[Rfam]
RNA sequence: UAUGCCGACUCAGGGGAGUAGUCGCUCCAUCGUGCUUCGAUGGAGGCGCACGUCAACAUAAUUGGUCCGAAGGGCCAUGGCGUGUGCGGCCGCUACGGCUUGACGAGACCUGUGGCAAUGACAUUCGGCUUGCCGGUGCCCGGCAAGUUGCGCUCUUGGUCGGGCGGCGGAU
Numbered sequence: 001u002a003u004g005c006c007g008a009c010u011c012a013g014g015g016g017a018g019u020a021g022u023c024g025c026u027c028c029a030u031c032g033u034g035c036u037u038c039g040a041u042g043g044a045g046g047c048g049c050a051c052g053u054c055a056a057c058a059u060a061a062u063u064g065g066u067c068c069g070a071a072g073g074g075c076c077a078u079g080g081c082g083u084g085u086g087c088g089g090c091c092g093c094u095a096c097g098g099c100u101u102g103a104c105g106a107g108a109c110c111u112g113u114g115g116c117a118a119u120g121a122c123a124u125u126c127g128g129c130u131u132g133c134c135g136g137u138g139c140c141c142g143g144c145a146a147g148u149u150g151c152g153c154u155c156u157u158g159g160u161c162g163g164g165c166g167g168c169g170g171a172u
Stems, first nucleotide, its partner, number of pairs: 026044003046087010063077005088172001090170005
Shown here is a 172-nucleotide RNA from Alkalilimnicola ehrlichii, a member of the family "Manganese Mn2+ riboswitch aptamer (yybP-ykoY)". This RNA was originally discovered in E. coli during a large scale screen and was named SraF. The family was later found to exist upstream of related families of protein genes in many bacteria, including the the yybP and ykoK genes in B. subtilis. The specific functions of these proteins are unknown, but this structured RNA element may be involved in their genetic regulation as a riboswitch. The pairing is the family consensus, mapped onto this sequence. For this family Rfam cites "New RNA motifs suggest an expanded scope for riboswitches in bacterial genetic control" (Barrick et al., Proc Natl Acad Sci U S A, 2004). NCBI's taxonomy places the organism under Bacteria, Pseudomonadota, Gammaproteobacteria, Ectothiorhodospiraceae, Alkalilimnicola.